[Rfam]
A member of the RNA family "Burkholderia sRNA Bp2_Cand287_SIPHT" from Trinickia terrae, 171 nucleotides long.
It scores 135 bits against the family's covariance model.
Taxonomically the source falls in Trinickia (Bacteria, Pseudomonadota, Burkholderiales, Burkholderiaceae).

RNA sequence: AAAAAGCCCGCUUCGCGUCGGCAUAAGCGGGCUUCGGGAGCGGUCACAGCGGUGAGCGUCGGGCGGUAACCCCGCCCUUUCGCUUUAGCUGUUUCGGGGUAGCCCCGCGUCCGCAAGCUGAAAUCAAAUCGACGCUGAACCGCAUCCUAGCAUGGCUGGCGGCAUUCGCGC
Number, nucleotide and partner (000 for none) at each position: 001a000002a000003a000004a034005a033006g032007c031008c030009c029010g028011c027012u026013u000014c000015g022016c021017g000018u000019c000020g000021g016022c015023a000024u000025a000026a012027g011028c010029g009030g008031g007032c006033u005034u004035c000036g000037g000038g000039a136040g135041c134042g133043g000044u000045c000046a000047c000048a084049g083050c082051g000052g000053u000054g000055a080056g079057c000058g000059u000060c000061g000062g073063g072064c000065g071066g070067u000068a000069a000070c066071c065072c063073c062074g000075c000076c000077c000078u000079u056080u055081c000082g050083c049084u048085u121086u120087a119088g118089c117090u116091g000092u000093u000094u000095c000096g106097g105098g104099g000100u000101a000102g000103c000104c098105c097106c096107g114108c113109g000110u000111c000112c000113g108114c107115a000116a090117g089118c088119u087120g086121a085122a000123a000124u000125c000126a000127a000128a000129u000130c000131g000132a000133c042134g041135c040136u039137g000138a000139a000140c000141c000142g000143c000144a000145u000146c000147c000148u000149a000150g000151c170152a000153u168154g167155g166156c000157u000158g000159g000160c000161g000162g000163c000164a000165u000166u155167c154168g153169c000170g151171c000